[Rfam]
RNA: Flavo-1 RNA
RNA sequence: UUUGAGUUAGGGAUUGCAGUGUAAAUCCUUUUGCUUUUUUGCAAAAGAUUGCAACGGAAAGCCCGCCCACGC
Number, nucleotide and partner (000 for none) at each position: 001u000002u000003u000004g000005a000006g000007u000008u000009a000010g064011g063012g062013a000014u060015u059016g000017c000018a000019g055020u054021g000022u000023a000024a050025a049026u048027c047028c000029u000030u045031u044032u043033g042034c041035u000036u000037u000038u000039u000040u000041g034042c033043a032044a031045a030046a000047g027048a026049u025050u024051g000052c000053a000054a020055c019056g000057g000058a000059a015060a014061g000062c012063c011064c010065g000066c000067c000068c000069a000070c000071g000072c000